[Rfam]
RNA sequence: AUUGGCAAAUGAUGUAAUUUCAGUUUUAUGCUUAACACACUGAUCACUCGUGCUGACUAAAAACUCCGCUUAUUAUCUGAUGCCAAU
Numbered sequence: 001a002u003u004g005g006c007a008a009a010u011g012a013u014g015u016a017a018u019u020u021c022a023g024u025u026u027u028a029u030g031c032u033u034a035a036c037a038c039a040c041u042g043a044u045c046a047c048u049c050g051u052g053c054u055g056a057c058u059a060a061a062a063a064c065u066c067c068g069c070u071u072a073u074u075a076u077c078u079g080a081u082g083c084c085a086a087u
Stems, first nucleotide, its partner, number of pairs: 003085005
RNA: Small nucleolar RNA R16
Organism: Lactuca saligna